[Rfam]
RNA sequence: CGCGGCCUCUGGUAACAGCUGCCGUGAUGGGGCAGGAGUCAGCAGAAGCCAUAGUAGGCGCGGACGUUGCCGCCAGCGAUCCGGC
Numbered sequence: 001c002g003c004g005g006c007c008u009c010u011g012g013u014a015a016c017a018g019c020u021g022c023c024g025u026g027a028u029g030g031g032g033c034a035g036g037a038g039u040c041a042g043c044a045g046a047a048g049c050c051a052u053a054g055u056a057g058g059c060g061c062g063g064a065c066g067u068u069g070c071c072g073c074c075a076g077c078g079a080u081c082c083g084g085c
Base pairs, nucleotide, nucleotide: 001026002025004023005022006021009018010017011016039046040045048085049084050083058077059076060073061072062071
RNA: Group II catalytic intron D1-D4-1